[Rfam]
RNA sequence: AGGUAGAUGCACCCUGAUAAUUCCCUGGCCCUUGGGUCGGGGAAUUUUUUU
Numbered sequence: 001a002g003g004u005a006g007a008u009g010c011a012c013c014c015u016g017a018u019a020a021u022u023c024c025c026u027g028g029c030c031c032u033u034g035g036g037u038c039g040g041g042g043a044a045u046u047u048u049u050u051u
Base pairs, nucleotide, nucleotide: 002013003012004011022043023042024041025040026039027038028037029036030035
The family of this 51-nucleotide RNA from Phormidium tenue is "Nitrogen stress-induced RNA 1". The family has 17 seed sequences and 962 matches in Rfam 15.1. The literature on the family includes a 2010 paper in J Mol Biol by Ionescu et al., "Heterocyst-specific transcription of NsiR1, a non-coding RNA encoded in a tandem array of direct repeats in cyanobacteria". The organism belongs to Phormidium tenue, within Bacteria.